[Rfam]
The family of this 277-nucleotide RNA from Nannospalax galili is "Mason-Pfizer monkey virus packaging signal". About the family: This family represents a group of sequences that are related to the Mason-Pfizer monkey virus (MPMV) packaging signal. The packaging signal is located in the 5' UTR and is required for specific RNA encapsidation. The base pairs follow the family's consensus structure, which was predicted with PFOLD. It scores 153 bits against the family's covariance model. Gene Ontology term of the family: viral genome packaging. The family's RNA type in Rfam is cis-regulatory element.

RNA sequence: CUGCACCCAACAUUAAGGCUGGACACUGAGGAUCCAGUGAGGGAAGACGACGUCCCAAAGGAACGCGUUCAACAAGGAUUUUUCUCUCUGGACUCGCCAUGGGAGCCUGCCUUGGCUAAAACCAGAAGUAAGUAAAAACGUCCAAUUAUGGGACAAGAAUUAAGCCAGCAUGAGCUUUAUGUUAAAAAAUUAAAAGAAGCCUUAAAGAUGCGAGGGGUAAAGGUUAAAACUAUGGAUUUGUUUCAUUUCUUUGAUUUUGUAAAGGACACUUGUCCCU
Numbered sequence: 001c002u003g004c005a006c007c008c009a010a011c012a013u014u015a016a017g018g019c020u021g022g023a024c025a026c027u028g029a030g031g032a033u034c035c036a037g038u039g040a041g042g043g044a045a046g047a048c049g050a051c052g053u054c055c056c057a058a059a060g061g062a063a064c065g066c067g068u069u070c071a072a073c074a075a076g077g078a079u080u081u082u083u084c085u086c087u088c089u090g091g092a093c094u095c096g097c098c099a100u101g102g103g104a105g106c107c108u109g110c111c112u113u114g115g116c117u118a119a120a121a122c123c124a125g126a127a128g129u130a131a132g133u134a135a136a137a138a139c140g141u142c143c144a145a146u147u148a149u150g151g152g153a154c155a156a157g158a159a160u161u162a163a164g165c166c167a168g169c170a171u172g173a174g175c176u177u178u179a180u181g182u183u184a185a186a187a188a189a190u191u192a193a194a195a196g197a198a199g200c201c202u203u204a205a206a207g208a209u210g211c212g213a214g215g216g217g218u219a220a221a222g223g224u225u226a227a228a229a230c231u232a233u234g235g236a237u238u239u240g241u242u243u244c245a246u247u248u249c250u251u252u253g254a255u256u257u258u259g260u261a262a263a264g265g266a267c268a269c270u271u272g273u274c275c276c277u
Stems, first nucleotide, its partner, number of pairs: 006031002013025001037048002086128002088125002094120001098114002101111002141152004161204003164200002211253007221239005262277001264275004